[Rfam]
RNA sequence: UUGGGAAAUUUGAAGACUUCAGCUUGUAUACUUGGAAGAUUUGAAGACUUCAUCUUGCAUACUUGGAAAUUUGAAGGCUUCAGCU
Numbered sequence: 001u002u003g004g005g006a007a008a009u010u011u012g013a014a015g016a017c018u019u020c021a022g023c024u025u026g027u028a029u030a031c032u033u034g035g036a037a038g039a040u041u042u043g044a045a046g047a048c049u050u051c052a053u054c055u056u057g058c059a060u061a062c063u064u065g066g067a068a069a070u071u072u073g074a075a076g077g078c079u080u081c082a083g084c085u
Stems, first nucleotide, its partner, number of pairs: 001083005009075006018067004025059004033052004

A member of the RNA family "MIR8024 microRNA precursor family" from Solanum commersonii, 85 nucleotides long. The base pairs follow the family's consensus structure, which was predicted with RNAalifold. The source organism's lineage runs through Eukaryota, Viridiplantae, Embryophyta, Pentapetalae and Solanum.